[Rfam]
RNA sequence: CGGCAAUGAGGAACGAAACCUGUGCCGGAGGCGGAUGCGCCGAUGUUGGUAACACAACCCUCUAAGAAGUUCUGAGCCG
Numbered sequence: 001c002g003g004c005a006a007u008g009a010g011g012a013a014c015g016a017a018a019c020c021u022g023u024g025c026c027g028g029a030g031g032c033g034g035a036u037g038c039g040c041c042g043a044u045g046u047u048g049g050u051a052a053c054a055c056a057a058c059c060c061u062c063u064a065a066g067a068a069g070u071u072c073u074g075a076g077c078c079g
Base pairs, nucleotide, nucleotide: 001079002078003077004076
The record is a 79-nucleotide sequence from Triticum urartu, which matches "Small nucleolar RNA U61" in Rfam. The organism belongs to Triticum, within Eukaryota. A reference for the family is Brown et al. (2003), "Plant snoRNA database", Nucleic Acids Res. The base pairs follow the family's consensus structure, which was predicted with WAR. Gene Ontology terms of the family: nucleolus and RNA processing. By type it is a C/D-box small nucleolar RNA. The family is grouped with related families in Rfam's "SNORD61 clan".